[Rfam]
RNA sequence: UCACGGCACUCUUCACUCGGAUCGUCCGGCACGUACCUGCCGGUGAAGGGACCAGUAA
Numbered sequence: 001u002c003a004c005g006g007c008a009c010u011c012u013u014c015a016c017u018c019g020g021a022u023c024g025u026c027c028g029g030c031a032c033g034u035a036c037c038u039g040c041c042g043g044u045g046a047a048g049g050g051a052c053c054a055g056u057a058a
Stems, first nucleotide, its partner, number of pairs: 009050007026043006
RNA: msiK RNA